[Rfam]
Rfam assigns this 132-nucleotide RNA from Pogona vitticeps to the family "Small Cajal body specific RNA 24". From the family's description: scaRNAs are a specific class of small nuclear RNAs which localise to the Cajal bodies and guide the modification of RNA polymerase II transcribed spliceosomal RNAs U1, U2, U4, U5 and U12. ACA12 belongs to the H/ACA box class of guide RNAs as it has the predicted hairpin-hinge-hairpin-tail structure,the conserved H/ACA-box motifs and is found associated with GAR1. Clan: SCARNA3 clan. On this family, see Darzacq et al., EMBO J 2002: "Cajal body-specific small nuclear RNAs: a novel class of 2'-O-methylation and pseudouridylation guide RNAs". The family's RNA type in Rfam is small Cajal body RNA.
RNA sequence: GGGAUGCUUGAAGUUUCUUUCAUUGUCCCUUUUUUGUGGGACGAUGAUACUAAAGUAUCCCAGAGUAACAAAGAAGCUGUCUGUUCAUCCCUGGGUAGUUAACAGGGUUGGAUCGUUCCACUUCUGACACCU
Numbered sequence: 001g002g003g004a005u006g007c008u009u010g011a012a013g014u015u016u017c018u019u020u021c022a023u024u025g026u027c028c029c030u031u032u033u034u035u036g037u038g039g040g041a042c043g044a045u046g047a048u049a050c051u052a053a054a055g056u057a058u059c060c061c062a063g064a065g066u067a068a069c070a071a072a073g074a075a076g077c078u079g080u081c082u083g084u085u086c087a088u089c090c091c092u093g094g095g096u097a098g099u100u101a102a103c104a105g106g107g108u109u110g111g112a113u114c115g116u117u118c119c120a121c122u123u124c125u126g127a128c129a130c131c132u
Stems, first nucleotide, its partner, number of pairs: 002060008012051002022045004028040003072125005090106004